Shown here is a 354-nucleotide RNA from Ruminiclostridium cellulolyticum, a member of the family "Bacterial RNase P class A". About the family: Ribonuclease P (RNase P) is a ubiquitous endoribonuclease, found in archaea, bacteria and eukarya as well as chloroplasts and mitochondria. Its best characterised activity is the generation of mature 5'-ends of tRNAs by cleaving the 5'-leader elements of precursor-tRNAs. Cellular RNase Ps are ribonucleoproteins. RNA from bacterial RNase Ps retains its catalytic activity in the absence of the protein subunit, i.e. it is a ribozyme. Isolated eukaryotic and archaeal RNase P RNA has not been shown to retain its catalytic function, but is still essential for the catalytic activity of the holoenzyme. Although the archaeal and eukaryotic holoenzyme s have a much greater protein content than the bacterial ones, the RNA cores from all the three lineages are homologous -- helices corresponding to P1, P2, P3, P4, and P10/11 are common to all cellular RNase P RNAs. Yet, there is considerable sequence variation, particularly among the eukaryotic RNAs. Identified in Yersinia as Ysr151/RnpB.
[Rfam]
RNA sequence: UGAGUAAGCCAGAUGAUCGCAGAUACUGCCUGAAAAGGCGUAGAUGAGGAAAGUCCGGGCUCCAUAGGGCAAUGGUGCCGGGUAACUCCCGGUGAAGGUGACUUUAAGGAAAGUGCAACAGAGAUAUACCGCCAUAUUAGGUUUGCCUUAUAUGGUAAGGGUGGAAAGGCGAGGUAAGAGCUCACCAGCGACUUGGCGACUUGUCGGCUAUGUAAACCCCAUCUGGAGCAACACCGUGGAGGGACGCAAUGACUGCCCGUCAGUCCCGGGGAGGUGGCUUGAGCCAGACAGAAAUGUAUGGCCUAGAUAGAUGAUCAUCAAAUACAGAACCCGGCUUAUAGACUUACUCAUACC
Numbered sequence: 001u002g003a004g005u006a007a008g009c010c011a012g013a014u015g016a017u018c019g020c021a022g023a024u025a026c027u028g029c030c031u032g033a034a035a036a037g038g039c040g041u042a043g044a045u046g047a048g049g050a051a052a053g054u055c056c057g058g059g060c061u062c063c064a065u066a067g068g069g070c071a072a073u074g075g076u077g078c079c080g081g082g083u084a085a086c087u088c089c090c091g092g093u094g095a096a097g098g099u100g101a102c103u104u105u106a107a108g109g110a111a112a113g114u115g116c117a118a119c120a121g122a123g124a125u126a127u128a129c130c131g132c133c134a135u136a137u138u139a140g141g142u143u144u145g146c147c148u149u150a151u152a153u154g155g156u157a158a159g160g161g162u163g164g165a166a167a168g169g170c171g172a173g174g175u176a177a178g179a180g181c182u183c184a185c186c187a188g189c190g191a192c193u194u195g196g197c198g199a200c201u202u203g204u205c206g207g208c209u210a211u212g213u214a215a216a217c218c219c220c221a222u223c224u225g226g227a228g229c230a231a232c233a234c235c236g237u238g239g240a241g242g243g244a245c246g247c248a249a250u251g252a253c254u255g256c257c258c259g260u261c262a263g264u265c266c267c268g269g270g271g272a273g274g275u276g277g278c279u280u281g282a283g284c285c286a287g288a289c290a291g292a293a294a295u296g297u298a299u300g301g302c303c304u305a306g307a308u309a310g311a312u313g314a315u316c317a318u319c320a321a322a323u324a325c326a327g328a329a330c331c332c333g334g335c336u337u338a339u340a341g342a343c344u345u346a347c348u349c350a351u352a353c354c
Stems, first nucleotide, its partner, number of pairs: 001350008010341001011339001012319007020046002024042003051337003055334005060228004067258004072224001074223004078092005093107001094105004108219002113217002115213003129160002131156007139148003168186002171183003188208001189206004195200001232276004241267005251261003283302004288297003

Lineage of the source: Bacteria > Bacillota > Clostridia > Ruminiclostridium > Ruminiclostridium cellulolyticum.